[Rfam]
RNA sequence: CCCUCAGAGUGUCAUAUCAAAUGAGAGUAGUGUGUUGUUUACAAUCACAAAAUCAGACACGUUGAACAGGGAA
Numbered sequence: 001c002c003c004u005c006a007g008a009g010u011g012u013c014a015u016a017u018c019a020a021a022u023g024a025g026a027g028u029a030g031u032g033u034g035u036u037g038u039u040u041a042c043a044a045u046c047a048c049a050a051a052a053u054c055a056g057a058c059a060c061g062u063u064g065a066a067c068a069g070g071g072a073a
Stems, first nucleotide, its partner, number of pairs: 001071004009060005022055003030048003035044002
Background:
RAGATH-18 RNA: a 73-nucleotide RNA. It is one of the family's seed sequences. The family's RNA type in Rfam is small RNA.